[Rfam]
This 108-nucleotide sequence from Alteromonadaceae bacterium M269 belongs to the Rfam family "Alpha operon ribosome binding site". Gene Ontology term of the family: ribosome binding. The family's consensus secondary structure is taken from published work. Rfam describes the family as follows. The bacterial alpha operon ribosome binding site is surrounded by this complex pseudoknotted structure. Translation of the mRNA produces 4 ribosomal protein products, one of which (S4) acts as a translational repressor by binding to the nested pseudoknot region. On this family, see Schlax et al., J Biol Chem 2001: "Translational repression of the Escherichia coli alpha operon mRNA: importance of an mRNA conformational switch and a ternary entrapment complex".

RNA sequence: UAAUUCGAACGUCAAAUAAGUAUCCUUACGGGCUUUUUAUUUUGGCAGACGACAUAACUAUGAGGAGAUGUGUUAGUGGCCCGUAUCGCUGGCAUUAACAUCCCUGGA
Numbered sequence: 001u002a003a004u005u006c007g008a009a010c011g012u013c014a015a016a017u018a019a020g021u022a023u024c025c026u027u028a029c030g031g032g033c034u035u036u037u038u039a040u041u042u043u044g045g046c047a048g049a050c051g052a053c054a055u056a057a058c059u060a061u062g063a064g065g066a067g068a069u070g071u072g073u074u075a076g077u078g079g080c081c082c083g084u085a086u087c088g089c090u091g092g093c094a095u096u097a098a099c100a101u102c103c104c105u106g107g108a
Stems, first nucleotide, its partner, number of pairs: 005052003011046003024092002029083004037107003